[Rfam]
RNA sequence: CUAUGCUAGACGGGGAGUUAGCGGUGCCUUGUAACCUGCAAUCCGCUUUAGCAGGGUUGAAUUCCAUACAGAGGGGCAUCUUGGUUGUUAUGCCGGAAGAGAAUUAUGUUGAUUCGUUGGUCCCAUGCAAUAGGAGCUUAUGAACCUUGUCAGGUCUGGAAGGAAGCAGCAAUAAGUAAUGUCUUCUGUGUGUUGUGGGAGUGCUGAUGAUGAGUAGUUUUUUACGAAACAGACAAUUGAAACACUUCGAAGUAUGGUGCAUAG
Numbered sequence: 001c002u003a004u005g006c007u008a009g010a011c012g013g014g015g016a017g018u019u020a021g022c023g024g025u026g027c028c029u030u031g032u033a034a035c036c037u038g039c040a041a042u043c044c045g046c047u048u049u050a051g052c053a054g055g056g057u058u059g060a061a062u063u064c065c066a067u068a069c070a071g072a073g074g075g076g077c078a079u080c081u082u083g084g085u086u087g088u089u090a091u092g093c094c095g096g097a098a099g100a101g102a103a104u105u106a107u108g109u110u111g112a113u114u115c116g117u118u119g120g121u122c123c124c125a126u127g128c129a130a131u132a133g134g135a136g137c138u139u140a141u142g143a144a145c146c147u148u149g150u151c152a153g154g155u156c157u158g159g160a161a162g163g164a165a166g167c168a169g170c171a172a173u174a175a176g177u178a179a180u181g182u183c184u185u186c187u188g189u190g191u192g193u194u195g196u197g198g199g200a201g202u203g204c205u206g207a208u209g210a211u212g213a214g215u216a217g218u219u220u221u222u223u224a225c226g227a228a229a230c231a232g233a234c235a236a237u238u239g240a241a242a243c244a245c246u247u248c249g250a251a252g253u254a255u256g257g258u259g260c261a262u263a264g
Stems, first nucleotide, its partner, number of pairs: 001264006009058003012030004017025003035055005064257006073248004079242001081240008091231002094226002097223003102219002105216003114210008122199006128190002131188005138179004147172004155164003
Overview:
Shown here is a 264-nucleotide sequence from Filifactor alocis, a member of the family "Bacterial large signal recognition particle RNA". Gene Ontology terms of the family: SRP-dependent cotranslational protein targeting to membrane, signal sequence recognition and signal recognition particle, plasma membrane targeting. The signal recognition particle (SRP) is a universally conserved ribonucleoprotein involved in the co-translational targeting of proteins to membranes. On this family, see Regalia et al., Nucleic Acids Res 2002: "Prediction of signal recognition particle RNA genes". The family's consensus secondary structure is taken from published work. NCBI's taxonomy places the organism under Bacteria, Peptostreptococcales, Filifactoraceae, Filifactor, Filifactor alocis. A search with the family's covariance model found it, with a score of 168 bits.